This 67-nucleotide sequence belongs to the Rfam family "DUF3800-VIII RNA". It is annotated as a small RNA. The family's consensus secondary structure is taken from published work. Bacteroidetes, Cyanobacteria, Firmicutes, Planctomycetes (1 example), Proteobacteria, Tenericutes (1 example). Rfam's curators put it in the seed alignment.
RNA sequence: AAAGCCCGGUGCGUUCCGAAGCCUUAGGUUCCUACCUGAGGUACUUAUGUAGGAACCACUGGGCUUA
Numbered sequence: 001a002a003a004g005c006c007c008g009g010u011g012c013g014u015u016c017c018g019a020a021g022c023c024u025u026a027g028g029u030u031c032c033u034a035c036c037u038g039a040g041g042u043a044c045u046u047a048u049g050u051a052g053g054a055a056c057c058a059c060u061g062g063g064c065u066u067a
Stems, first nucleotide, its partner, number of pairs: 002066010014055004021042009